Rfam assigns this 299-nucleotide RNA sequence from Thelazia callipaeda to the family "Metazoan signal recognition particle RNA". The signal recognition particle (SRP) is a universally conserved ribonucleoprotein. It is involved in the co-translational targeting of proteins to membranes. The eukaryotic SRP consists of a 300-nucleotide 7S RNA and six proteins: SRPs 72, 68, 54, 19, 14, and 9. Archaeal SRP consists of a 7S RNA and homologues of the eukaryotic SRP19 and SRP54 proteins. Its Rfam clan is "SRP clan". It is annotated as a non-coding RNA gene. The family's consensus secondary structure is taken from published work. The source organism's lineage runs through Eukaryota, Eumetazoa, Chromadorea, Spiruromorpha and Thelazia. Gene Ontology terms of the family: signal recognition particle, endoplasmic reticulum targeting and SRP-dependent cotranslational protein targeting to membrane, signal sequence recognition.

RNA sequence: GCCGGGCGUUGUGGCGAGCGCUUGUAAUCCAAGUGACUGGGAGGCUUGGUACGGUGGAUGGAGUGAGAGAAGGGGCCCUGGUUGGUGCUUGGCGAUGACGACCGAGCGUCCAGGCUAAGCGUGGCGUCAAUAAGGUUACAUAUCGGGAACGUCAUGUGACCUGGUUGAACAAUGAGGGGCGUACGGCUCAGGGCCGAAAGGCAGCAGGCAAAAGUCCCCGCGUCAUGACAGUGGCCGGAUAGCGCUUGCGAGUCGUCAACACCAUUCAGCCUUCUCAAUACCUUCAGACCCGCUCCUUA
Numbered sequence: 001g002c003c004g005g006g007c008g009u010u011g012u013g014g015c016g017a018g019c020g021c022u023u024g025u026a027a028u029c030c031a032a033g034u035g036a037c038u039g040g041g042a043g044g045c046u047u048g049g050u051a052c053g054g055u056g057g058a059u060g061g062a063g064u065g066a067g068a069g070a071a072g073g074g075g076c077c078c079u080g081g082u083u084g085g086u087g088c089u090u091g092g093c094g095a096u097g098a099c100g101a102c103c104g105a106g107c108g109u110c111c112a113g114g115c116u117a118a119g120c121g122u123g124g125c126g127u128c129a130a131u132a133a134g135g136u137u138a139c140a141u142a143u144c145g146g147g148a149a150c151g152u153c154a155u156g157u158g159a160c161c162u163g164g165u166u167g168a169a170c171a172a173u174g175a176g177g178g179g180c181g182u183a184c185g186g187c188u189c190a191g192g193g194c195c196g197a198a199a200g201g202c203a204g205c206a207g208g209c210a211a212a213a214g215u216c217c218c219c220g221c222g223u224c225a226u227g228a229c230a231g232u233g234g235c236c237g238g239a240u241a242g243c244g245c246u247u248g249c250g251a252g253u254c255g256u257c258a259a260c261a262c263c264a265u266u267c268a269g270c271c272u273u274c275u276c277a278a279u280a281c282c283u284u285c286a287g288a289c290c291c292g293c294u295c296c297u298u299a
Stems, first nucleotide, its partner, number of pairs: 001045003004023007028042003048296002052292003059286005067276007078269004083264005089258001092256005103248007110238002113236005119229001120227008128167004133162009144151002169173001176218005186209003193202003